About this RNA:
The record is a 111-nucleotide RNA from Candidatus Photodesmus blepharonis, which matches "Alpha operon ribosome binding site" in Rfam. From the family's description: The bacterial alpha operon ribosome binding site is surrounded by this complex pseudoknotted structure. Translation of the mRNA produces 4 ribosomal protein products, one of which (S4) acts as a translational repressor by binding to the nested pseudoknot region. The mechanism of repression is thought to involve a conformational switch in the pseudoknot region and ribosome entrapment. The base pairs follow the family's consensus structure, which is taken from published work. Gene Ontology term of the family: ribosome binding.
RNA sequence: CUGAGUAGUAUUCCACGGUGUAUCCUCAACGGGCUUUACCGGGAUGUUUUUUUAUAUUGUAAUUACUAGGAGUUAAUAGUGGCCCGUAUAGCAGGUAUUAAUAUUCCUGAU
Numbered sequence: 001c002u003g004a005g006u007a008g009u010a011u012u013c014c015a016c017g018g019u020g021u022a023u024c025c026u027c028a029a030c031g032g033g034c035u036u037u038a039c040c041g042g043g044a045u046g047u048u049u050u051u052u053u054a055u056a057u058u059g060u061a062a063u064u065a066c067u068a069g070g071a072g073u074u075a076a077u078a079g080u081g082g083c084c085c086g087u088a089u090a091g092c093a094g095g096u097a098u099u100a101a102u103a104u105u106c107c108u109g110a111u
Base pairs, nucleotide, nucleotide: 004051005050007048008047009046010045011044012043013042024095025094026093030086031085032084033083039109
Dot-bracket structure: ...((.(((((((..........[[[...[[[[.....{..))))))).))...............................]]]]......]]].............}..

A reference for the family is Schlax et al. (2001), "Translational repression of the Escherichia coli alpha operon mRNA: importance of an mRNA conformational switch and a ternary entrapment complex", J Biol Chem. A search with the family's covariance model found it, with a score of 78 bits.